[Rfam]
Small nucleolar RNA SNORD17: a 247-nucleotide RNA from Ciconia maguari. The snoRNA HBI-43 belongs to the C/D family of snoRNAs, guiding 2'O-ribose methylation at position U3797 of the 28S rRNA. Pseudouridylation in position U3797 is predicted to be guided by the H/ACA snoRNA ACA48. Gene Ontology terms of the family: nucleolus and RNA processing. It scores 136 bits against the family's covariance model.

RNA sequence: GUGAGGUGAUGAUGAAGUUUAUCCAUUCUCUGAGUGCAGUGGUGCUGCCCUCCUGCAGCAUCCCGAUUCCUGUUCUAGGGUCUGGGUGCUGUGCAGCCUCCAGAGACCCUCCAGUCUCCCAGUGUCCUACUGGGGGCUGCUGUGGUGUGUGGCUGGCUGCCUGCAGGAGUGAAGUGGUGCCGGCAGGGUUGGAGUCCCUCUUUGGGGGGCUCCAUCCUCACUGAGAUGAUGGAUGAUGCCUGAUCAC
Numbered sequence: 001g002u003g004a005g006g007u008g009a010u011g012a013u014g015a016a017g018u019u020u021a022u023c024c025a026u027u028c029u030c031u032g033a034g035u036g037c038a039g040u041g042g043u044g045c046u047g048c049c050c051u052c053c054u055g056c057a058g059c060a061u062c063c064c065g066a067u068u069c070c071u072g073u074u075c076u077a078g079g080g081u082c083u084g085g086g087u088g089c090u091g092u093g094c095a096g097c098c099u100c101c102a103g104a105g106a107c108c109c110u111c112c113a114g115u116c117u118c119c120c121a122g123u124g125u126c127c128u129a130c131u132g133g134g135g136g137c138u139g140c141u142g143u144g145g146u147g148u149g150u151g152g153c154u155g156g157c158u159g160c161c162u163g164c165a166g167g168a169g170u171g172a173a174g175u176g177g178u179g180c181c182g183g184c185a186g187g188g189u190u191g192g193a194g195u196c197c198c199u200c201u202u203u204g205g206g207g208g209g210c211u212c213c214a215u216c217c218u219c220a221c222u223g224a225g226a227u228g229a230u231g232g233a234u235g236a237u238g239c240c241u242g243a244u245c246a247c
Base pairs, nucleotide, nucleotide: 010246011245012244013243017239018238020236023232024231025230027229028228030225031224034221035220039184040183042181043179044178045177046176047175048174050171051168052167053166054165055164056163057162059088060087061086062085063084065082068080069079070078071077093160094159095158096157097156098155106146107145112139113138114137115136116135118134119133120132121131122130123129124128186219187218188216190214191213192212193211197209198208